[Rfam]
RNA sequence: UGCUUUGUGUUAAGGUGCAUCUAGUGCAGUUAGUGGCAUAGCUUAGAAUCUACUGCUCUAAAUGCUCCUUUUGGCACAAGGU
Number, nucleotide and partner (000 for none) at each position: 001u000002g000003c000004u079005u078006u000007g000008u000009g000010u073011u000012a000013a069014g068015g067016u000017g065018c064019a063020u062021c000022u060023a059024g058025u000026g056027c055028a000029g054030u000031u052032a051033g050034u000035g000036g000037c000038a000039u000040a000041g000042c000043u000044u000045a000046g000047a000048a000049u000050c033051u032052a031053c000054u029055g027056c026057u000058c024059u023060a022061a000062a020063u019064g018065c017066u000067c015068c014069u013070u000071u000072u000073g010074g000075c000076a000077c000078a005079a004080g000081g000082u000
Shown here is an 82-nucleotide RNA sequence from Eleutherodactylus coqui, a member of the family "mir-17 microRNA precursor family".
Lineage of the source: Eukaryota > Opisthokonta > Batrachia > Hyloidea > Eleutherodactylus.
It scores 60 bits against the family's covariance model.
The literature on the family includes a 2001 paper in Science by Lagos-Quintana et al., "Identification of novel genes coding for small expressed RNAs".
Pairs were carried over by alignment from the consensus structure, which was predicted with RNAalifold.